[Rfam]
RNA sequence: GGCUGCUCCAAAGGUAGUGAGUCUCAAUUGAUUGUUCACAGUCAGUUGCAGAUCGAACUUUUUGUUCAGUUCUUUCUCCUCUUAUCACUACUGCACUUGGCUAGUCUAAA
Numbered sequence: 001g002g003c004u005g006c007u008c009c010a011a012a013g014g015u016a017g018u019g020a021g022u023c024u025c026a027a028u029u030g031a032u033u034g035u036u037c038a039c040a041g042u043c044a045g046u047u048g049c050a051g052a053u054c055g056a057a058c059u060u061u062u063u064g065u066u067c068a069g070u071u072c073u074u075u076c077u078c079c080u081c082u083u084a085u086c087a088c089u090a091c092u093g094c095a096c097u098u099g100g101c102u103a104g105u106c107u108a109a110a
Stems, first nucleotide, its partner, number of pairs: 001106005007100002010098002014094002016089005026071003030067002
RNA: Y RNA